[Rfam]
RNA sequence: AUUUUUGGAUAAUCGCAUGGGAUAACCAUGAGGAAAGUCCAUGCUAGCACUGGCUGUGAUGCCGGUAGUGUUUGUGCUAGACGAAAAAAUAAGUCUAGGGACAUGGUGACAUGUUACGGCGGAUAAAAUGACUAAGUCUUCUGAUAGGUCAGAGUUAUCCUGAAAGUGCCACAGUGACGUAGUUUUUAUGGAAACGUAAAAAGUGGAACGCGGUAAACCCCUCAAGCUAGCAACCCAAACUUUGGUCGGGGCAUGGGAAAGCUGGAAACGAACAGUCUUUCCUGACUGCAUAAGCAGUAGACAGAUGAUUAUCGAAGGCGGCAGAGCCUAGUGUCGCUGGAACAAAACAUGGCUUAUAGAA
Numbered sequence: 001a002u003u004u005u006u007g008g009a010u011a012a013u014c015g016c017a018u019g020g021g022a023u024a025a026c027c028a029u030g031a032g033g034a035a036a037g038u039c040c041a042u043g044c045u046a047g048c049a050c051u052g053g054c055u056g057u058g059a060u061g062c063c064g065g066u067a068g069u070g071u072u073u074g075u076g077c078u079a080g081a082c083g084a085a086a087a088a089a090u091a092a093g094u095c096u097a098g099g100g101a102c103a104u105g106g107u108g109a110c111a112u113g114u115u116a117c118g119g120c121g122g123a124u125a126a127a128a129u130g131a132c133u134a135a136g137u138c139u140u141c142u143g144a145u146a147g148g149u150c151a152g153a154g155u156u157a158u159c160c161u162g163a164a165a166g167u168g169c170c171a172c173a174g175u176g177a178c179g180u181a182g183u184u185u186u187u188a189u190g191g192a193a194a195c196g197u198a199a200a201a202a203g204u205g206g207a208a209c210g211c212g213g214u215a216a217a218c219c220c221c222u223c224a225a226g227c228u229a230g231c232a233a234c235c236c237a238a239a240c241u242u243u244g245g246u247c248g249g250g251g252c253a254u255g256g257g258a259a260a261g262c263u264g265g266a267a268a269c270g271a272a273c274a275g276u277c278u279u280u281c282c283u284g285a286c287u288g289c290a291u292a293a294g295c296a297g298u299a300g301a302c303a304g305a306u307g308a309u310u311a312u313c314g315a316a317g318g319c320g321g322c323a324g325a326g327c328c329u330a331g332u333g334u335c336g337c338u339g340g341a342a343c344a345a346a347a348c349a350u351g352g353c354u355u356a357u358a359g360a361a
Stems, first nucleotide, its partner, number of pairs: 004361003007357001008313007016030005035355003039352005044230005049066006072225003076221001077098006099117001100115006118220002121160004129151004136145003166218002168214003183202008234250003254284007285298005317338007
RNA: Bacterial RNase P class B
Organism: Streptococcus ferus